Annotation:
This 82-nucleotide RNA sequence from Jacana jacana belongs to the Rfam family "Small nucleolar RNA SNORD24".
RNA sequence: UGCCACAUGAUGACAUUUAUUUGCUACUCUCGACCAAGAGGAUGACGAGAACUUAUACCACCAUAACUUUUCCGCUGAGGCA
Numbered sequence: 001u002g003c004c005a006c007a008u009g010a011u012g013a014c015a016u017u018u019a020u021u022u023g024c025u026a027c028u029c030u031c032g033a034c035c036a037a038g039a040g041g042a043u044g045a046c047g048a049g050a051a052c053u054u055a056u057a058c059c060a061c062c063a064u065a066a067c068u069u070u071u072c073c074g075c076u077g078a079g080g081c082a
Stems, first nucleotide, its partner, number of pairs: 001082004

Taxonomically the source falls in Jacana (Eukaryota, Eumetazoa, Sauropsida, Archelosauria).